[Rfam]
The family of this 96-nucleotide RNA sequence from Clostridium sp. chh4-2 is "Purine riboswitch aptamer".
The base pairs follow the family's consensus structure, which is taken from published work.
RNA sequence: AUAAAAUUUAACUGUUGUGCUUAUAUAAGUUCAAGAUCGGUUGAACGUUUCUACCAACUACCGUAAUAGUUGACUAUAAGUGAUUUUUCACUGUAU
Numbered sequence: 001a002u003a004a005a006a007u008u009u010a011a012c013u014g015u016u017g018u019g020c021u022u023a024u025a026u027a028a029g030u031u032c033a034a035g036a037u038c039g040g041u042u043g044a045a046c047g048u049u050u051c052u053a054c055c056a057a058c059u060a061c062c063g064u065a066a067u068a069g070u071u072g073a074c075u076a077u078a079a080g081u082g083a084u085u086u087u088u089c090a091c092u093g094u095a096u
Stems, first nucleotide, its partner, number of pairs: 018082008029046006055072006